[Rfam]
RNA sequence: CGCAUAAAUAGAGGAGCUGCCAAGCAUGUAUUUGGCGAGGUGUUAAGGAGAAGAACCUCCAAUACUCGCUGAAGAAGGUUUGGCUGCCGAAAGGGUGAGCUUGUUCUUGAGCUCAUCCUUGGUGGUAAACACAAAGUUUACCACUGUCAUGGGACCUCCCAUGAAGCGCUAUUUAUGCA
Numbered sequence: 001c002g003c004a005u006a007a008a009u010a011g012a013g014g015a016g017c018u019g020c021c022a023a024g025c026a027u028g029u030a031u032u033u034g035g036c037g038a039g040g041u042g043u044u045a046a047g048g049a050g051a052a053g054a055a056c057c058u059c060c061a062a063u064a065c066u067c068g069c070u071g072a073a074g075a076a077g078g079u080u081u082g083g084c085u086g087c088c089g090a091a092a093g094g095g096u097g098a099g100c101u102u103g104u105u106c107u108u109g110a111g112c113u114c115a116u117c118c119u120u121g122g123u124g125g126u127a128a129a130c131a132c133a134a135a136g137u138u139u140a141c142c143a144c145u146g147u148c149a150u151g152g153g154a155c156c157u158c159c160c161a162u163g164a165a166g167c168g169c170u171a172u173u174u175a176u177g178c179a
Base pairs, nucleotide, nucleotide: 006174007173008172009171010170011169016087017086019084020083021082022081023080024079031073032072033071034070035069036068037067038066091120092119093118094117095116096115097114098113099112100111101110102109121145122144123143124142125141126140127139128138129137130136147164148163149162150161151160152159153158
A member of the RNA family "Lysine riboswitch aptamer" from Caldanaerobacter subterraneus, 179 nucleotides long. The family's consensus secondary structure is taken from published work. The source organism's lineage runs through Bacteria, Bacillati, Bacillota, Thermoanaerobacterales and Caldanaerobacter subterraneus subsp. tengcongensis.